[Rfam]
RNA sequence: UGCAAAUGAUGUUUAUCUCACGAUGGUCUUCCAAGCCGCUGGCUCUGACGACACUGCCUCACGGCGACACUGAUGCAGCGCA
Numbered sequence: 001u002g003c004a005a006a007u008g009a010u011g012u013u014u015a016u017c018u019c020a021c022g023a024u025g026g027u028c029u030u031c032c033a034a035g036c037c038g039c040u041g042g043c044u045c046u047g048a049c050g051a052c053a054c055u056g057c058c059u060c061a062c063g064g065c066g067a068c069a070c071u072g073a074u075g076c077a078g079c080g081c082a
Stems, first nucleotide, its partner, number of pairs: 001077004
Shown here is an 82-nucleotide sequence from Conger conger, a member of the family "Small nucleolar RNA SNORD35".
Rfam describes the family as follows. U35 is a C/D box snoRNA located in intron 6 of ribosomal protein L13A and intron 3 of ribosomal protein S11 in humans and at homologous positions in mouse and chicken ribosomal protein genes. U35 guides the methylation of 2'-O-ribose sites in 28S rRNA.
It scores 58 bits against the family's covariance model.
A reference for the family is Nicoloso et al. (1996), "Intron-encoded, antisense small nucleolar RNAs: the characterization of nine novel species points to their direct role as guides for the 2'-O-ribose methylation of rRNAs", J Mol Biol.
Its Rfam clan is "SNORD35 clan".
The family's consensus secondary structure was predicted with PFOLD.
By type it is a C/D-box small nucleolar RNA.